Overview:
Rfam assigns this 88-nucleotide RNA sequence from Candidatus Pelagibacter sp. IMCC9063 to the family "Glycine riboswitch aptamer". NCBI's taxonomy places the organism under Bacteria, Pseudomonadati, Pseudomonadota, Alphaproteobacteria, Candidatus Pelagibacter. Pairs were carried over by alignment from the consensus structure. From the family's description: This family represents the bacterial glycine riboswitch. A search with the family's covariance model found it, with a score of 67 bits.
[Rfam]
RNA sequence: GAGUGUUUUACGGGAGAGACUAUUUAAAUAUAGCGCUGAAGGAUCAACUGCUCAGGAAAAUCUCAAGCAAAAGGACCGUAAAAAUUAA
Numbered sequence: 001g002a003g004u005g006u007u008u009u010a011c012g013g014g015a016g017a018g019a020c021u022a023u024u025u026a027a028a029u030a031u032a033g034c035g036c037u038g039a040a041g042g043a044u045c046a047a048c049u050g051c052u053c054a055g056g057a058a059a060a061u062c063u064c065a066a067g068c069a070a071a072a073g074g075a076c077c078g079u080a081a082a083a084a085u086u087a088a
Base pairs, nucleotide, nucleotide: 006083007082008081009080010079011078012077013076020033021032022031023030035068036067037066038064039063042062043061044060048055049054